[Rfam]
RNA sequence: AUCAUCCUUUUCUUGAGGUUGCACUACUGUCCAAUGAGCUCCUAGUGAGGGCAGUAUUGCUAAUGCCUUAACAAGAAACACUCAGAGACGAUACAUAUUUUACCUUGAAAAGACCUUGGAGUUUGCUUGGAAGU
Numbered sequence: 001a002u003c004a005u006c007c008u009u010u011u012c013u014u015g016a017g018g019u020u021g022c023a024c025u026a027c028u029g030u031c032c033a034a035u036g037a038g039c040u041c042c043u044a045g046u047g048a049g050g051g052c053a054g055u056a057u058u059g060c061u062a063a064u065g066c067c068u069u070a071a072c073a074a075g076a077a078a079c080a081c082u083c084a085g086a087g088a089c090g091a092u093a094c095a096u097a098u099u100u101u102a103c104c105u106u107g108a109a110a111a112g113a114c115c116u117u118g119g120a121g122u123u124u125g126c127u128u129g130g131a132a133g134u
Base pairs, nucleotide, nucleotide: 006018007017008016009015021060022059023058026055027054028053029052030051031050032049038046039045094118095117096113098111099110100109101108
Annotation
The record is a 134-nucleotide sequence from Nyctereutes procyonoides, which matches "U4atac minor spliceosomal RNA" in Rfam. About the family: U4atac is an essential component of the minor U12-type spliceosome complex which is required for removal of the rarer class of eukaryotic introns (AT-AC, U12-type). Taxonomically the source falls in Nyctereutes (Eukaryota, Metazoa, Teleostomi, Dipnotetrapodomorpha). The literature on the family includes a 2005 paper in RNA by Lorkovic et al., "Evolutionary conservation of minor U12-type spliceosome between plants and humans". The match comes from Rfam's covariance-model search (65 bits). The family's consensus secondary structure is taken from published work.